[Rfam]
RNA sequence: AGUGGGUGUAAAGCAUGUGGACAGGCCUCUGGGGCCAGGCAUUCCUAGGCCAGGCUCUGGCUCCGUCACUUCCAGCCCUGUGACCUUGGA
Dot-bracket structure: ...(.(.((..(......((.......(.((.(((((((................))))))).))..)........))..).))).)...